[Rfam]
RNA: mir-1791 microRNA precursor family
RNA sequence: AGCACCAUGUUGGGCUGCAUCAGUUGUGCCAUGUUAUGAAACCUAACGUGAUGUGACUGAUGCAGGCUGACGUGAUGUGU
Numbered sequence: 001a002g003c004a005c006c007a008u009g010u011u012g013g014g015c016u017g018c019a020u021c022a023g024u025u026g027u028g029c030c031a032u033g034u035u036a037u038g039a040a041a042c043c044u045a046a047c048g049u050g051a052u053g054u055g056a057c058u059g060a061u062g063c064a065g066g067c068u069g070a071c072g073u074g075a076u077g078u079g080u
Base pairs, nucleotide, nucleotide: 002080003079004078005077006074007073008072009071010070011069012068013067015065016064017063018062019061020060021059022058023057024056025055026054027053028052030050032048033047034046035045036044